The record is a 94-nucleotide RNA sequence from Sorghum bicolor, which matches "MIR5387 microRNA precursor family" in Rfam.
It scores 93 bits against the family's covariance model.

RNA sequence: UCGUAACACGAACCGGUGCUAAAGGGUCCUGCCCACCUGCUCCUGACAGAGCCUGUCGGGGUAGGGACCCUUUAGCACCGGUUCGUGUUACCAA
Numbered sequence: 001u002c003g004u005a006a007c008a009c010g011a012a013c014c015g016g017u018g019c020u021a022a023a024g025g026g027u028c029c030u031g032c033c034c035a036c037c038u039g040c041u042c043c044u045g046a047c048a049g050a051g052c053c054u055g056u057c058g059g060g061g062u063a064g065g066g067a068c069c070c071u072u073u074a075g076c077a078c079c080g081g082u083u084c085g086u087g088u089u090a091c092c093a094a
Stems, first nucleotide, its partner, number of pairs: 003091025029065002032060003037055001043049002
Lineage of the source: Eukaryota > Viridiplantae > Embryophyta > Liliopsida > Sorghum. Its family is annotated with miRNA-mediated post-transcriptional gene silencing and RISC complex in the Gene Ontology. The family's consensus secondary structure was predicted with RNAalifold.